[Rfam]
RNA sequence: ACAACAUAGUUACUCCAAGCCGGGAUGGUCCUAAAGGUUUCGCCCAUGGACACCGGCCAGAACAGAUAAUGUUCUCAGGGUAUGUUUGGAAACGAAUAUGCCUUCCGACUUUGAAAAGGAGUGAACGUGGGGGUUUA
Dot-bracket structure: .....(....((((((..(((((.....(((....(((...)))...)))..))))).(((((.......)))))..(((((((((((....)))))))))))((.......))...))))))....).........
A member of the RNA family "Molybdenum/Tungsten riboswitch aptamer (Moco RNA motif)" from Desulfosporosinus youngiae, 137 nucleotides long. The source organism's lineage runs through Bacteria, Bacillota, Clostridia, Desulfitobacteriaceae and Desulfosporosinus youngiae. The family's consensus secondary structure is taken from published work. The family has 160 seed sequences and 1,248 matches in Rfam 15.1.